[Rfam]
RNA sequence: GGGGUCGUUUUGGAUUCGACGGGUAUUGGUCGAGCUAUGACUGCGUUUAGGGGUUGUGGCCCUUAUAAAUCCACUCAGUCAGAAUAACUGCAAACAAUUCAAACAAAACUUACGCUUUAGCUGCUUAAUAACCAGUUAGCGUAGUCUAGUCGGGGUUCGCCCAUGAUGUCGCCUAGACCACCUUUUAUGGGCUACGGUACCUGCUUCUACUCGGAGUUUAGUACAAGAGACUAAUCGGGUUAGCUGACAAGAAUUGCGAAGUGUAUCCCGCGUACUUGCCAGCGAAAUUUAAAUAGGAUGGCUAUGAACGUAGAUGUUGUAGUGGCGAGAUGCUCGGACGCGGGUUCGAAACCCGCCGGCUCCAUAC
Numbered sequence: 001g002g003g004g005u006c007g008u009u010u011u012g013g014a015u016u017c018g019a020c021g022g023g024u025a026u027u028g029g030u031c032g033a034g035c036u037a038u039g040a041c042u043g044c045g046u047u048u049a050g051g052g053g054u055u056g057u058g059g060c061c062c063u064u065a066u067a068a069a070u071c072c073a074c075u076c077a078g079u080c081a082g083a084a085u086a087a088c089u090g091c092a093a094a095c096a097a098u099u100c101a102a103a104c105a106a107a108a109c110u111u112a113c114g115c116u117u118u119a120g121c122u123g124c125u126u127a128a129u130a131a132c133c134a135g136u137u138a139g140c141g142u143a144g145u146c147u148a149g150u151c152g153g154g155g156u157u158c159g160c161c162c163a164u165g166a167u168g169u170c171g172c173c174u175a176g177a178c179c180a181c182c183u184u185u186u187a188u189g190g191g192c193u194a195c196g197g198u199a200c201c202u203g204c205u206u207c208u209a210c211u212c213g214g215a216g217u218u219u220a221g222u223a224c225a226a227g228a229g230a231c232u233a234a235u236c237g238g239g240u241u242a243g244c245u246g247a248c249a250a251g252a253a254u255u256g257c258g259a260a261g262u263g264u265a266u267c268c269c270g271c272g273u274a275c276u277u278g279c280c281a282g283c284g285a286a287a288u289u290u291a292a293a294u295a296g297g298a299u300g301g302c303u304a305u306g307a308a309c310g311u312a313g314a315u316g317u318u319g320u321a322g323u324g325g326c327g328a329g330a331u332g333c334u335c336g337g338a339c340g341c342g343g344g345u346u347c348g349a350a351a352c353c354c355g356c357c358g359g360c361u362c363c364a365u366a367c
Stems, first nucleotide, its partner, number of pairs: 001363007020336008034323008044310005050064004055077002058074001117139007144178005151171002155167003159192006197224004203218001205216001209240005243283004248278004256271003261302002266296001340356005
RNA: transfer-messenger RNA
Organism: Periweissella cryptocerci